[Rfam]
RNA sequence: AACGUACUUCAGGGCAGGGUGAAAUUCCCGACCGGCGGUAAUGGCGCAUUUGCGCUUAGCCCGCGAGCAACCAGAACUGGUUGUUGAUAUCGGUGCGAUUCCGAAGCCGACGGUAAGCAACGGCGCAUAUGCAUGCGCUUUUUCAGUUGCAAGUCCGGAUGGAAGAAGCAAAAA
Numbered sequence: 001a002a003c004g005u006a007c008u009u010c011a012g013g014g015c016a017g018g019g020u021g022a023a024a025u026u027c028c029c030g031a032c033c034g035g036c037g038g039u040a041a042u043g044g045c046g047c048a049u050u051u052g053c054g055c056u057u058a059g060c061c062c063g064c065g066a067g068c069a070a071c072c073a074g075a076a077c078u079g080g081u082u083g084u085u086g087a088u089a090u091c092g093g094u095g096c097g098a099u100u101c102c103g104a105a106g107c108c109g110a111c112g113g114u115a116a117g118c119a120a121c122g123g124c125g126c127a128u129a130u131g132c133a134u135g136c137g138c139u140u141u142u143u144c145a146g147u148u149g150c151a152a153g154u155c156c157g158g159a160u161g162g163a164a165g166a167a168g169c170a171a172a173a174a
Stems, first nucleotide, its partner, number of pairs: 005170001007168004017029003033109002035064004059107002067084003088105001090104004111157003
RNA: FMN riboswitch aptamer (RFN element)